[Rfam]
RNA sequence: GUUACGGCGCCAAAGGAUCUUCCAUGCGAAGGAACCCGUCGCGAGGCGGUAGUACGGGCAUGGUUGCCAGUGUCGUAACUUACGUUUUGAAGAACGG
Numbered sequence: 001g002u003u004a005c006g007g008c009g010c011c012a013a014a015g016g017a018u019c020u021u022c023c024a025u026g027c028g029a030a031g032g033a034a035c036c037c038g039u040c041g042c043g044a045g046g047c048g049g050u051a052g053u054a055c056g057g058g059c060a061u062g063g064u065u066g067c068c069a070g071u072g073u074c075g076u077a078a079c080u081u082a083c084g085u086u087u088u089g090a091a092g093a094a095c096g097g
Base pairs, nucleotide, nucleotide: 001079002078003077004076005075006074007073008072009071010070015068016067022063023062024061025060026059027058031055036049037048038047039046040045083096084095085094